[Rfam]
RNA: Eukaryotic large subunit ribosomal RNA, nucleotides 656 to 938
RNA sequence: AAAUCUAAUAUUUAUAUAAGUAUUUAAAUAUUAAGCCUGAGCGCGUAAUAAAAGUAAACAGAAAUAAAAACUUUUUAGAGUGUACUAUUAACUAAUUUUAAUAUUUUUAGAUAGAUUUAAGUAAAAGUAUAGCUGUUAGAACCCGAAAAAUAGUAAACUAUACUUAAAUAGAGUAAAGCUAAAAAAAACUUUAGUAGAGGCUUACAGUAGUUCUAAUAUGUAAAUUAAUUAUUAAAUUUAGAUAUAGAGGCGAAAGACUAAUUAAACUAUUUAGUAGCUGGUU
Numbered sequence: 001a002a003a004u005c006u007a008a009u010a011u012u013u014a015u016a017u018a019a020g021u022a023u024u025u026a027a028a029u030a031u032u033a034a035g036c037c038u039g040a041g042c043g044c045g046u047a048a049u050a051a052a053a054g055u056a057a058a059c060a061g062a063a064a065u066a067a068a069a070a071c072u073u074u075u076u077a078g079a080g081u082g083u084a085c086u087a088u089u090a091a092c093u094a095a096u097u098u099u100a101a102u103a104u105u106u107u108u109a110g111a112u113a114g115a116u117u118u119a120a121g122u123a124a125a126a127g128u129a130u131a132g133c134u135g136u137u138a139g140a141a142c143c144c145g146a147a148a149a150a151u152a153g154u155a156a157a158c159u160a161u162a163c164u165u166a167a168a169u170a171g172a173g174u175a176a177a178g179c180u181a182a183a184a185a186a187a188a189c190u191u192u193a194g195u196a197g198a199g200g201c202u203u204a205c206a207g208u209a210g211u212u213c214u215a216a217u218a219u220g221u222a223a224a225u226u227a228a229u230u231a232u233u234a235a236a237u238u239u240a241g242a243u244a245u246a247g248a249g250g251c252g253a254a255a256g257a258c259u260a261a262u263u264a265a266a267c268u269a270u271u272u273a274g275u276a277g278c279u280g281g282u283u
Stems, first nucleotide, its partner, number of pairs: 005139006012132006020044002025039002029035001048055002063089004070081003091122002093119003096115003102109002142281002145278001149271006158247005164241005169235001171203004178195006207232004212228001215226002249259002